[Rfam]
RNA sequence: GCGGGGCUGUGGGGUACGUCUGGAGACAAUAUCCCCGGGGCCUUAUCGAUCCUGAAGGGAGCUGUCCCUGACCUUGCCCCUGGGCUCGGACACACGGCGCCCACCUACUUUGUAGGUUUCCCGGGAUCGCACUCCGACGGCUUUCGCGGCUCCGCA
Numbered sequence: 001g002c003g004g005g006g007c008u009g010u011g012g013g014g015u016a017c018g019u020c021u022g023g024a025g026a027c028a029a030u031a032u033c034c035c036c037g038g039g040g041c042c043u044u045a046u047c048g049a050u051c052c053u054g055a056a057g058g059g060a061g062c063u064g065u066c067c068c069u070g071a072c073c074u075u076g077c078c079c080c081u082g083g084g085c086u087c088g089g090a091c092a093c094a095c096g097g098c099g100c101c102c103a104c105c106u107a108c109u110u111u112g113u114a115g116g117u118u119u120c121c122c123g124g125g126a127u128c129g130c131a132c133u134c135c136g137a138c139g140g141c142u143u144u145c146g147c148g149g150c151u152c153c154g155c156a
Base pairs, nucleotide, nucleotide: 002154003153004152005151006150007149008148009147010146011145012143013142014141015140017139018138019137032126033125034124035123037121038120039119040117041116042115057102058101059100061098062097063096064095065094070091072089073088076085077084078083
6S / SsrS RNA: a 156-nucleotide RNA from Xanthobacter tagetidis. Pairs were carried over by alignment from the consensus structure, which is taken from published work. Rfam describes the family as follows. E. coli 6S RNA was the first non coding RNA to be sequenced, but its function was unknown until recently. It consists of 184 nucleotides that fold into an extended hairpin structure with a large single-stranded internal bulge. The family's RNA type in Rfam is non-coding RNA gene. The organism belongs to Xanthobacter, within Bacteria.